Notes
Shown here is a 71-nucleotide sequence from Nephila pilipes, a member of the family "Vault RNA".

RNA sequence: ACGCAGGCAUGGUCGAGUGGUUACUUCGGAAAAAACUUGUUUAUUGACCGCUGACGCCGUCCUGUGUUUUU
Number, nucleotide and partner (000 for none) at each position: 001a000002c066003g065004c064005a063006g062007g061008c000009a000010u000011g000012g055013u054014c053015g052016a000017g051018u050019g049020g048021u000022u000023a000024c000025u000026u047027c046028g045029g044030a000031a000032a000033a000034a000035a000036c000037u000038u000039g000040u000041u000042u000043a000044u029045u028046g027047a026048c020049c019050g018051c017052u015053g014054a013055c012056g000057c000058c000059g000060u000061c007062c006063u005064g004065u003066g002067u000068u000069u000070u000071u000

This family of RNAs are found as part of the enigmatic vault ribonucleoprotein complex. The complex consists of a major vault protein (MVP), two minor vault proteins (VPARP and TEP1), and several small untranslated RNA molecules. It has been suggested that the vault complex is involved in drug resistance. On this family, see Stadler et al., Mol Biol Evol 2009: "Evolution of Vault RNAs".